[Rfam]
RNA sequence: GUUCGGCUACGGCGUUGGUGACUGCCAACAAUGUUUUCUGAUCUAUGUUUUUCAUUCGUAGGGUAUCGAGAUGCCUGAGGCGGCAGUAUACCGAGCUUGUCCUAAUAGGGCUUGUACUCGGAAACUAUAAGCCUACAGCCGAGAUUCCCACCUGGUCACCCCAGGUCAAAAACUGAGGUAAGACGGCGCUGCGGUCGAACU
Numbered sequence: 001g002u003u004c005g006g007c008u009a010c011g012g013c014g015u016u017g018g019u020g021a022c023u024g025c026c027a028a029c030a031a032u033g034u035u036u037u038c039u040g041a042u043c044u045a046u047g048u049u050u051u052u053c054a055u056u057c058g059u060a061g062g063g064u065a066u067c068g069a070g071a072u073g074c075c076u077g078a079g080g081c082g083g084c085a086g087u088a089u090a091c092c093g094a095g096c097u098u099g100u101c102c103u104a105a106u107a108g109g110g111c112u113u114g115u116a117c118u119c120g121g122a123a124a125c126u127a128u129a130a131g132c133c134u135a136c137a138g139c140c141g142a143g144a145u146u147c148c149c150a151c152c153u154g155g156u157c158a159c160c161c162c163a164g165g166u167c168a169a170a171a172a173c174u175g176a177g178g179u180a181a182g183a184c185g186g187c188g189c190u191g192c193g194g195u196c197g198a199a200c201u
Stems, first nucleotide, its partner, number of pairs: 002199007010191006018184002035172003039168006061149003065145003070140001075138003078134004086125002091121005

Shown here is a 201-nucleotide RNA from Synechococcus sp. PCC 7335, a member of the family "6S / SsrS RNA". By type it is a non-coding RNA gene. E. coli 6S RNA was the first non coding RNA to be sequenced, but its function was unknown until recently. It consists of 184 nucleotides that fold into an extended hairpin structure with a large single-stranded internal bulge. The family's consensus secondary structure is taken from published work.